[Rfam]
RNA sequence: AUUGGUUACGGUGAUAUGACACCGCAUACAUAUCUGGGGCGUAUAAUUGGUUCAGUAUGUGCACUUACCGGUGUCUUAACUAUUGCAUUACCUGUUCCUGUAAAUAUUACGUUAU
Numbered sequence: 001a002u003u004g005g006u007u008a009c010g011g012u013g014a015u016a017u018g019a020c021a022c023c024g025c026a027u028a029c030a031u032a033u034c035u036g037g038g039g040c041g042u043a044u045a046a047u048u049g050g051u052u053c054a055g056u057a058u059g060u061g062c063a064c065u066u067a068c069c070g071g072u073g074u075c076u077u078a079a080c081u082a083u084u085g086c087a088u089u090a091c092c093u094g095u096u097c098c099u100g101u102a103a104a105u106a107u108u109a110c111g112u113u114a115u
Base pairs, nucleotide, nucleotide: 001115002114004112007109008108011105014101015100016099018097019096021095022094037077038076039075050062051061
RNA: Potassium channel RNA editing signal
Organism: Onchocerca flexuosa